Rfam assigns this 87-nucleotide RNA sequence from Romboutsia sp. CE17 to the family "Glycine riboswitch aptamer". The match comes from Rfam's covariance-model search (66 bits). Pairs were carried over by alignment from the consensus structure.

RNA sequence: UUAGGAAACUCUGGAGAGACCCGUUAUGGGCGCCGAAGGGGCAAGGCUUAUGCUCAAUCUCUCAGGCAAAAGGACAGGGAUUAUACU
Numbered sequence: 001u002u003a004g005g006a007a008a009c010u011c012u013g014g015a016g017a018g019a020c021c022c023g024u025u026a027u028g029g030g031c032g033c034c035g036a037a038g039g040g041g042c043a044a045g046g047c048u049u050a051u052g053c054u055c056a057a058u059c060u061c062u063c064a065g066g067c068a069a070a071a072g073g074a075c076a077g078g079g080a081u082u083a084u085a086c087u
Base pairs, nucleotide, nucleotide: 006082007081009079010078011077012076013075020030021029022028032067033066034065035063036062039061040060041059045054